[Rfam]
RNA sequence: AUAUCAGAGCGGUAAGACCUCUGUGGGUUCCUCUGGUGUUCCCUUCCGUAGGUUGGCAAAGCCAGAGGGCACGCACCCACAGGGCACGCUCUUUUU
Numbered sequence: 001a002u003a004u005c006a007g008a009g010c011g012g013u014a015a016g017a018c019c020u021c022u023g024u025g026g027g028u029u030c031c032u033c034u035g036g037u038g039u040u041c042c043c044u045u046c047c048g049u050a051g052g053u054u055g056g057c058a059a060a061g062c063c064a065g066a067g068g069g070c071a072c073g074c075a076c077c078c079a080c081a082g083g084g085c086a087c088g089c090u091c092u093u094u095u096u
Stems, first nucleotide, its partner, number of pairs: 001096001003094001009089002024079005030073001031067007042056002046052002
RNA: DUF3800-V RNA